[Rfam]
RNA sequence: CCCUCGGUCAACAAAUCGCUAUUCGAAGCUCACAAACAGAGACUCUGCGUACGCACCGUCUCGCUCUUAUUUUGCUUUGGGAGAAAGUCCCCGGACACCUCCGUUUCGGAGCCUGCGGAAACGCGCCGCCAUAGAAGCACUGCGGCUGACCUUGUUGCGCCUUGGCCCUCUCACUAUGCCGGGCACUCGCCCUGCUCAUCGCUACAUCUGUCAUGCUUGAAACUUUUGCUUGAUAUCCGGCGGUGUCUCUGGGACCACUAUGGAUGAAGAUAUGAGUCCGAGCCUGGGUGAUGCUUCUGUUUGGAAGGCGAUUGAUGAAUAGCGGCAGAUGAUGAGUGGACGCGAUAGUGUUUGGUAGAGAGUGGUAGCGGGUGCCGAGGAUAUUUUGUCGAAGUCAAAAGAUAUGCGAUUGCUUGGCGCAAGCCAAGUUACUCGAUGGGGCUUAUUCUUGAGGCGAGG
Numbered sequence: 001c002c003c004u005c006g007g008u009c010a011a012c013a014a015a016u017c018g019c020u021a022u023u024c025g026a027a028g029c030u031c032a033c034a035a036a037c038a039g040a041g042a043c044u045c046u047g048c049g050u051a052c053g054c055a056c057c058g059u060c061u062c063g064c065u066c067u068u069a070u071u072u073u074g075c076u077u078u079g080g081g082a083g084a085a086a087g088u089c090c091c092c093g094g095a096c097a098c099c100u101c102c103g104u105u106u107c108g109g110a111g112c113c114u115g116c117g118g119a120a121a122c123g124c125g126c127c128g129c130c131a132u133a134g135a136a137g138c139a140c141u142g143c144g145g146c147u148g149a150c151c152u153u154g155u156u157g158c159g160c161c162u163u164g165g166c167c168c169u170c171u172c173a174c175u176a177u178g179c180c181g182g183g184c185a186c187u188c189g190c191c192c193u194g195c196u197c198a199u200c201g202c203u204a205c206a207u208c209u210g211u212c213a214u215g216c217u218u219g220a221a222a223c224u225u226u227u228g229c230u231u232g233a234u235a236u237c238c239g240g241c242g243g244u245g246u247c248u249c250u251g252g253g254a255c256c257a258c259u260a261u262g263g264a265u266g267a268a269g270a271u272a273u274g275a276g277u278c279c280g281a282g283c284c285u286g287g288g289u290g291a292u293g294c295u296u297c298u299g300u301u302u303g304g305a306a307g308g309c310g311a312u313u314g315a316u317g318a319a320u321a322g323c324g325g326c327a328g329a330u331g332a333u334g335a336g337u338g339g340a341c342g343c344g345a346u347a348g349u350g351u352u353u354g355g356u357a358g359a360g361a362g363u364g365g366u367a368g369c370g371g372g373u374g375c376c377g378a379g380g381a382u383a384u385u386u387u388g389u390c391g392a393a394g395u396c397a398a399a400a401g402a403u404a405u406g407c408g409a410u411u412g413c414u415u416g417g418c419g420c421a422a423g424c425c426a427a428g429u430u431a432c433u434c435g436a437u438g439g440g441g442c443u444u445a446u447u448c449u450u451g452a453g454g455c456g457a458g459g
Stems, first nucleotide, its partner, number of pairs: 002459005008452004014411006023081001024079006039062005085444003089441004114125004181192004234383003238377005246371002249368001255365004349357003413428006

Shown here is a 459-nucleotide RNA sequence from Ophiocordyceps australis, a member of the family "RNase MRP". The family's RNA type in Rfam is ribozyme. NCBI's taxonomy places the organism under Eukaryota, Fungi, Dikarya, Sordariomycetes, Ophiocordyceps. About the family: RNase MRP is an enzymatically active ribonucleoprotein with two distinct roles in eukaryotes. In mitochondria it plays a direct role in the initiation of mitochondrial DNA replication. In the nucleus it is involved in precursor rRNA processing, where it cleaves the internal transcribed spacer 1 between 18S and 5.8S rRNAs. Despite distinct functions, RNase MRP has been shown to be evolutionarily related to RNase P. Like eukaryotic RNase P, RNase MRP is not catalytically active without associated protein subunits.